[Rfam]
RNA sequence: GCGGUACCGGUUCACGUCUCCCAGAUCUCCCACGGCGAAGACCGUGUGAGUAGAGACGCCCGGCGACC
Numbered sequence: 001g002c003g004g005u006a007c008c009g010g011u012u013c014a015c016g017u018c019u020c021c022c023a024g025a026u027c028u029c030c031c032a033c034g035g036c037g038a039a040g041a042c043c044g045u046g047u048g049a050g051u052a053g054a055g056a057c058g059c060c061c062g063g064c065g066a067c068c
Base pairs, nucleotide, nucleotide: 003068004067005066007063008062009061010060015058016057017056018055019054020053
Overview
Shown here is a 68-nucleotide sequence from Actinomadura barringtoniae, a member of the family "L31-Actinobacteria ribosomal protein leader". A search with the family's covariance model found it, with a score of 36 bits. The organism belongs to Actinomadura, within Bacteria. The family's consensus secondary structure is taken from published work.